[Rfam]
A member of the RNA family "ASpks TB sRNA" from Streptomyces malaysiense, 75 nucleotides long.
Pairs were carried over by alignment from the consensus structure, which is taken from published work.
It scores 81 bits against the family's covariance model.
The organism belongs to Streptomyces, within Bacteria.
By type it is an antisense RNA.
RNA sequence: CUUCACCGAUCCCAGCCACAGCGGGCGUUCGGCGGGCCUGUCCUGGCCGUAGGUGGCCAGCAGGGCCUGGGCCUC
Numbered sequence: 001c002u003u004c005a006c007c008g009a010u011c012c013c014a015g016c017c018a019c020a021g022c023g024g025g026c027g028u029u030c031g032g033c034g035g036g037c038c039u040g041u042c043c044u045g046g047c048c049g050u051a052g053g054u055g056g057c058c059a060g061c062a063g064g065g066c067c068u069g070g071g072c073c074u075c
Stems, first nucleotide, its partner, number of pairs: 016024002033069001038065002043060003047056003